[Rfam]
RNA sequence: GUUUCCACAUGUACUAUGGCUUUUUAUUCCUAUGUGAUAGUGACAAAAAUGUUCAUGUAGGAACUGAAGCCAUUUCACACGUGGUGAG
Numbered sequence: 001g002u003u004u005c006c007a008c009a010u011g012u013a014c015u016a017u018g019g020c021u022u023u024u025u026a027u028u029c030c031u032a033u034g035u036g037a038u039a040g041u042g043a044c045a046a047a048a049a050u051g052u053u054c055a056u057g058u059a060g061g062a063a064c065u066g067a068a069g070c071c072a073u074u075u076c077a078c079a080c081g082u083g084g085u086g087a088g
Base pairs, nucleotide, nucleotide: 002087003086005084006083007082008081010079011078012077016073017072018071019070020069021068022067023066027063028062029061030060031059032058033057034056035055036054037053
mir-135 microRNA precursor family: an 88-nucleotide RNA sequence from Echeneis naucrates. Pairs were carried over by alignment from the consensus structure, which was predicted with PFOLD. NCBI's taxonomy places the organism under Eukaryota, Opisthokonta, Bilateria, Deuterostomia, Echeneis. Rfam links the family to the GO terms gene silencing by miRNA and RISC complex. A search with the family's covariance model found it, with a score of 66 bits. A reference for the family is Lagos-Quintana et al. (2002), "Identification of tissue-specific microRNAs from mouse", Curr Biol.